About this RNA: Rfam assigns this 94-nucleotide sequence to the family "dinG RNA". Rfam classes the family as a small RNA. The base pairs follow the family's consensus structure, which is taken from published work.
RNA sequence: AAUGAUACUCCCCCGAGAAAACCGGGGCCGGGCGGCGCGGAGGCGCGAUCCGGGGAAGCGUCGUGCGGUUUGAAAGAGAAUCGUGGGAGCCUCC
Dot-bracket structure: ..........(((((.......)))))(((((................)))))(((.((..(...(((((........)))))...).)).)))
Numbered sequence: 001a002a003u004g005a006u007a008c009u010c011c012c013c014c015g016a017g018a019a020a021a022c023c024g025g026g027g028c029c030g031g032g033c034g035g036c037g038c039g040g041a042g043g044c045g046c047g048a049u050c051c052g053g054g055g056a057a058g059c060g061u062c063g064u065g066c067g068g069u070u071u072g073a074a075a076g077a078g079a080a081u082c083g084u085g086g087g088a089g090c091c092u093c094c
Stems, first nucleotide, its partner, number of pairs: 011027005028053005054094003058090002062087001066083005